About this RNA:
The family of this 79-nucleotide sequence from Molossus molossus is "mir-92 microRNA precursor family". The match comes from Rfam's covariance-model search (84 bits). Its Rfam clan is "mir-92 microRNA precursor clan". About the family: This family represents the microRNA precursor mir-92. Human miR-92 has two predicted hairpin precursor sequences: mir-92-1 on chromosome 13 and mir-92-2 on chromosome X. miR-92 has also been cloned from mouse embryonic stem cells. The family's consensus secondary structure was predicted with PFOLD. Taxonomically the source falls in Molossus (Eukaryota, Gnathostomata, Boreoeutheria, Chiroptera). Gene Ontology terms of the family: miRNA-mediated post-transcriptional gene silencing and RISC complex. On this family, see Mourelatos et al., Genes Dev 2002: "miRNPs: a novel class of ribonucleoproteins containing numerous microRNAs".

RNA sequence: AUUCAUCCGUGGGUAGGGAUUUGUUGCAUUACUGUGUUUUAUAUAAAGUAUUGCACUUGUCCCGGCCUGUGGAAGAAGA
Dot-bracket structure: ...(.(..((((((.(((((..((.(((.((((.............)))).)))))..))))).))))))..).)....
Numbered sequence: 001a002u003u004c005a006u007c008c009g010u011g012g013g014u015a016g017g018g019a020u021u022u023g024u025u026g027c028a029u030u031a032c033u034g035u036g037u038u039u040u041a042u043a044u045a046a047a048g049u050a051u052u053g054c055a056c057u058u059g060u061c062c063c064g065g066c067c068u069g070u071g072g073a074a075g076a077a078g079a
Stems, first nucleotide, its partner, number of pairs: 004075001006073001009070006016063005023056002026054003030050004